[Rfam]
RNA: Small nucleolar RNA SNORD2
RNA sequence: AAGUGAAAUGAUGGCAAUCAUCUUUCGGGACUGACCUGAAAUGAAGAGAUUCUCUUGCUGAUCACUU
Numbered sequence: 001a002a003g004u005g006a007a008a009u010g011a012u013g014g015c016a017a018u019c020a021u022c023u024u025u026c027g028g029g030a031c032u033g034a035c036c037u038g039a040a041a042u043g044a045a046g047a048g049a050u051u052c053u054c055u056u057g058c059u060g061a062u063c064a065c066u067u
Stems, first nucleotide, its partner, number of pairs: 001067006